[Rfam]
RNA sequence: CGAAACCCGGCGGGAGAGUCCGGGUGGUCUUUUUAUCUAGAGAUCUCCCGGCGCCGAAGGAGCAACGGCCCCGGAACCUCUCAGGCAAAGUGGACCGCCGGGGGAUU
Numbered sequence: 001c002g003a004a005a006c007c008c009g010g011c012g013g014g015a016g017a018g019u020c021c022g023g024g025u026g027g028u029c030u031u032u033u034u035a036u037c038u039a040g041a042g043a044u045c046u047c048c049c050g051g052c053g054c055c056g057a058a059g060g061a062g063c064a065a066c067g068g069c070c071c072c073g074g075a076a077c078c079u080c081u082c083a084g085g086c087a088a089a090g091u092g093g094a095c096c097g098c099c100g101g102g103g104g105a106u107u
Stems, first nucleotide, its partner, number of pairs: 006102008020051004053086003056082002060080003066073002
Dot-bracket structure: .....((((((((......((((........................)))).(((((..(((...((....))....))))).)))........)))))))).....
RNA: Glycine riboswitch aptamer